[Rfam]
This 95-nucleotide RNA from Taxus chinensis belongs to the Rfam family "MIR535 microRNA precursor family".
The literature on the family includes a 2010 paper in Nucleic Acids Res by Zeng et al., "Conservation and divergence of microRNAs and their functions in Euphorbiaceous plants".
The family's consensus secondary structure was predicted with RNAalifold.
Rfam links the family to the GO terms RISC complex and miRNA-mediated post-transcriptional gene silencing.
RNA sequence: GAGCUCAGGUGACAACGAGAGAGAGCACGCUUGUCAGCAUUCAUGCAAGAGACAUGGCUGUUUACAGGAGUGUUGUCUCUCGUUGUCACCUGAUU
Dot-bracket structure: .........(((((.((..((...((((.(((((.............................))))).))))...))..)).))))).......
Numbered sequence: 001g002a003g004c005u006c007a008g009g010u011g012a013c014a015a016c017g018a019g020a021g022a023g024a025g026c027a028c029g030c031u032u033g034u035c036a037g038c039a040u041u042c043a044u045g046c047a048a049g050a051g052a053c054a055u056g057g058c059u060g061u062u063u064a065c066a067g068g069a070g071u072g073u074u075g076u077c078u079c080u081c082g083u084u085g086u087c088a089c090c091u092g093a094u095u
Stems, first nucleotide, its partner, number of pairs: 010088005016082002020078002025073004030068005